The family of this 67-nucleotide RNA from Danionella cerebrum is "Small nucleolar RNA SNORD42". Rfam describes the family as follows. snoRNA U42 is found in intron 3 of the ribosomal protein L23a (RPL23a) gene in humans and is also present in mice. It is annotated as a C/D-box small nucleolar RNA. The match comes from Rfam's covariance-model search (48 bits).
RNA sequence: CUGCAUAUGAUGUAAACUUACUUUUGCCUGAAUGAUUGUGAUGCAUUCAAAGGAACCACUGAUGCUG
Numbered sequence: 001c002u003g004c005a006u007a008u009g010a011u012g013u014a015a016a017c018u019u020a021c022u023u024u025u026g027c028c029u030g031a032a033u034g035a036u037u038g039u040g041a042u043g044c045a046u047u048c049a050a051a052g053g054a055a056c057c058a059c060u061g062a063u064g065c066u067g
Stems, first nucleotide, its partner, number of pairs: 001067001003065003